Overview
Glycine riboswitch aptamer: a 93-nucleotide sequence from Faecalibacterium prausnitzii. Rfam links the family to the GO term glycine biosynthetic process.
RNA sequence: GUGCCGCACUCUGGAGAAGCCUGCAGGAGGCGGGUGCCGAAGGUGUAAGGCCGUUUGGGCCGAUCUCUCAGGCAAAAGGACAGAGCAAACGUC
Numbered sequence: 001g002u003g004c005c006g007c008a009c010u011c012u013g014g015a016g017a018a019g020c021c022u023g024c025a026g027g028a029g030g031c032g033g034g035u036g037c038c039g040a041a042g043g044u045g046u047a048a049g050g051c052c053g054u055u056u057g058g059g060c061c062g063a064u065c066u067c068u069c070a071g072g073c074a075a076a077a078g079g080a081c082a083g084a085g086c087a088a089a090c091g092u093c
Base pairs, nucleotide, nucleotide: 009085010084011083012082013081020034021033022032023031036073037072038071039069040068043067045065050060051059